[Rfam]
RNA sequence: AAUAACUGAUUUAACGAGUGAGUGGAAUGAAAGCCUUCAUGUUGAGCUGAAACACUCCCAAUAAUACUCCUACAUGCAGAGAAAGUUGAUAGACUGCACUGUAUGAAGCUAGGUGAAGACGCAUGAAGAAAGCCUAAGUACAUGACAACAUGUAUAUGGCAAUUGAUAAUGCGGUUGGCUAUAAA
Numbered sequence: 001a002a003u004a005a006c007u008g009a010u011u012u013a014a015c016g017a018g019u020g021a022g023u024g025g026a027a028u029g030a031a032a033g034c035c036u037u038c039a040u041g042u043u044g045a046g047c048u049g050a051a052a053c054a055c056u057c058c059c060a061a062u063a064a065u066a067c068u069c070c071u072a073c074a075u076g077c078a079g080a081g082a083a084a085g086u087u088g089a090u091a092g093a094c095u096g097c098a099c100u101g102u103a104u105g106a107a108g109c110u111a112g113g114u115g116a117a118g119a120c121g122c123a124u125g126a127a128g129a130a131a132g133c134c135u136a137a138g139u140a141c142a143u144g145a146c147a148a149c150a151u152g153u154a155u156a157u158g159g160c161a162a163u164u165g166a167u168a169a170u171g172c173g174g175u176u177g178g179c180u181a182u183a184a185a
Base pairs, nucleotide, nucleotide: 018058020057021056022055023054024053032048033047034046059177060176061175062174069113070112071111072110073105074104075103076102077101078100079099081097083095120173121172122171123170124169128164129163132160133159138146139145149158150157151156

Notes
Shown here is a 185-nucleotide RNA from Bacillus thuringiensis, a member of the family "Group II catalytic intron D1-D4-5". The source organism's lineage runs through Bacteria, Bacilli, Bacillus, Bacillus thuringiensis and Bacillus thuringiensis serovar huazhongensis. Rfam's curators put it in the seed alignment. Group II introns are found in rRNA, tRNA and mRNA of organelles in fungi, plants and protists, and also in mRNA in bacteria.